Rfam assigns this 92-nucleotide sequence from Kineococcus aurantiacus to the family "SAM riboswitch aptamer (S box leader)". Rfam links the family to the GO term regulation of gene expression. The organism belongs to Kineococcus, within Bacteria. Pairs were carried over by alignment from the consensus structure, which is taken from published work.

RNA sequence: GCACCAUCCAGAGCGGCCGAGAGACCUGGCUCGUCGACGCCGCAGCAACCGCCCCCACGGGGGUGUGGUGCUCAUGCCGGGACCGAUGGAGG
Dot-bracket structure: .(.(((((....(((((...(((..[[[[)))......)))))((((.((((((......))))..))))))...(]]]]...)))))).).
Numbered sequence: 001g002c003a004c005c006a007u008c009c010a011g012a013g014c015g016g017c018c019g020a021g022a023g024a025c026c027u028g029g030c031u032c033g034u035c036g037a038c039g040c041c042g043c044a045g046c047a048a049c050c051g052c053c054c055c056c057a058c059g060g061g062g063g064u065g066u067g068g069u070g071c072u073c074a075u076g077c078c079g080g081g082a083c084c085g086a087u088g089g090a091g092g
Stems, first nucleotide, its partner, number of pairs: 002091001004089005013043005021032003026080004044072004049068002051064004076084001